[Rfam]
Record summary:
The record is a 129-nucleotide RNA sequence from Nannospalax galili, which matches "Small nucleolar RNA SNORA30/SNORA37 family" in Rfam. A search with the family's covariance model found it, with a score of 110 bits. Lineage of the source: Eukaryota > Sarcopterygii > Rodentia > Spalacidae > Nannospalax. The base pairs follow the family's consensus structure, which was predicted with RNAfold. Rfam's curators write: The members of this family belong to the H/ACA class of snoRNAs that guide the sites of modification of uridines to pseudouridines. This family includes human ACA30 (SNORA30), ACA37 (SNORA37) and the mouse homolog MBI-26. Both ACA37 and ACA30 are predicted to guide the pseudouridylation of residue U4643 of 28S rRNA.
RNA sequence: UUAGCACUUUCACAGGUCUUCCCUUAGUCAGUGGGGCCAGGAUUUGGUAGCUGGUGCUGAGAGAAAAGCCCUGUUUACGUUCUUACCCUGAUACUGUAACAGUGGCAGCUUUCACUCAAGGGAACAGGG
Numbered sequence: 001u002u003a004g005c006a007c008u009u010u011c012a013c014a015g016g017u018c019u020u021c022c023c024u025u026a027g028u029c030a031g032u033g034g035g036g037c038c039a040g041g042a043u044u045u046g047g048u049a050g051c052u053g054g055u056g057c058u059g060a061g062a063g064a065a066a067a068g069c070c071c072u073g074u075u076u077a078c079g080u081u082c083u084u085a086c087c088c089u090g091a092u093a094c095u096g097u098a099a100c101a102g103u104g105g106c107a108g109c110u111u112u113c114a115c116u117c118a119a120g121g122g123a124a125c126a127g128g129g
Stems, first nucleotide, its partner, number of pairs: 003058006013046003017042004022036004069122002072118002076114001079112001083108002086105002088102003